RNA sequence: AACGCCUGUCGCAGAUCUCUCCCUCCCCUGGAGUGAUCACGGAGCCAAAGCCCCUCCCCAGGCCUGGCUCCUCCAGCCCCGCCGGCCCCCCCUGCCUGCGGGGCUUUUUA
Numbered sequence: 001a002a003c004g005c006c007u008g009u010c011g012c013a014g015a016u017c018u019c020u021c022c023c024u025c026c027c028c029u030g031g032a033g034u035g036a037u038c039a040c041g042g043a044g045c046c047a048a049a050g051c052c053c054c055u056c057c058c059c060a061g062g063c064c065u066g067g068c069u070c071c072u073c074c075a076g077c078c079c080c081g082c083c084g085g086c087c088c089c090c091c092c093u094g095c096c097u098g099c100g101g102g103g104c105u106u107u108u109u110a
Stems, first nucleotide, its partner, number of pairs: 004012001006011001014038004019033004041071007050063003075105008084096003